Source information
This 64-nucleotide RNA sequence from Sinocyclocheilus grahami belongs to the Rfam family "Small nucleolar RNA SNORD58". The family's consensus secondary structure was predicted with PFOLD. Rfam 15.1 lists 2,484 matches to the family in 680 species. snoRNA U58 is found in introns 1, 3 and 6 of the ribosomal protein RPL17 gene in humans. Lineage of the source: Eukaryota > Otomorpha > Ostariophysi > Otophysi > Sinocyclocheilus. The literature on the family includes a 2002 paper in Mol Cell Biol by Galardi et al., "Purified box C/D snoRNPs are able to reproduce site-specific 2'-O-methylation of target RNA in vitro".
RNA sequence: CUGUAGUGAUGACCACUUAGGACACCUUUGGAUUUGUGAUGAAAGUAAUCAUAUUCUGAGCAGC
Numbered sequence: 001c002u003g004u005a006g007u008g009a010u011g012a013c014c015a016c017u018u019a020g021g022a023c024a025c026c027u028u029u030g031g032a033u034u035u036g037u038g039a040u041g042a043a044a045g046u047a048a049u050c051a052u053a054u055u056c057u058g059a060g061c062a063g064c
Base pairs, nucleotide, nucleotide: 001063002062003061004060